[Rfam]
RNA sequence: UGCAGAGUAGACUGUAAAGCGUUAAGUGCCGUUUGCACAGGGAGUUGGCAGAUGGACGAAGGAUUAUCCGCGGUUUUAUGGUCGCAUCCCGCUGCU
Numbered sequence: 001u002g003c004a005g006a007g008u009a010g011a012c013u014g015u016a017a018a019g020c021g022u023u024a025a026g027u028g029c030c031g032u033u034u035g036c037a038c039a040g041g042g043a044g045u046u047g048g049c050a051g052a053u054g055g056a057c058g059a060a061g062g063a064u065u066a067u068c069c070g071c072g073g074u075u076u077u078a079u080g081g082u083c084g085c086a087u088c089c090c091g092c093u094g095c096u
Stems, first nucleotide, its partner, number of pairs: 002095004010083010020072003026057002029055008040089003044085001061069003
RNA: THF (Tetrahydrofolate) riboswitch aptamer